[Rfam]
Source information:
This 102-nucleotide RNA from Roseburia sp. AM16-25 belongs to the Rfam family "TPP riboswitch aptamer (THI element)". Vitamin B(1) in its active form thiamin pyrophosphate (TPP) is an essential coenzyme that is synthesised by coupling of pyrimidine and thiazole moieties in bacteria. Its family is annotated with thiamine pyrophosphate binding in the Gene Ontology. Taxonomically the source falls in Roseburia (Bacteria, Bacillota, Lachnospirales, Lachnospiraceae).

RNA sequence: AAUCUAUGCUAGGGGUGCCUUUGGGGCUGAGAGAUGUCUUGACAUCGACCCUUAUUACUUGAACCGGGUAAUACCGGCGUAAGGAAGCUUAGUUCCUGACUG
Numbered sequence: 001a002a003u004c005u006a007u008g009c010u011a012g013g014g015g016u017g018c019c020u021u022u023g024g025g026g027c028u029g030a031g032a033g034a035u036g037u038c039u040u041g042a043c044a045u046c047g048a049c050c051c052u053u054a055u056u057a058c059u060u061g062a063a064c065c066g067g068g069u070a071a072u073a074c075c076g077g078c079g080u081a082a083g084g085a086a087g088c089u090u091a092g093u094u095c096c097u098g099a100c101u102g
Stems, first nucleotide, its partner, number of pairs: 006090001008088003011052004017027004034045004058083004064077004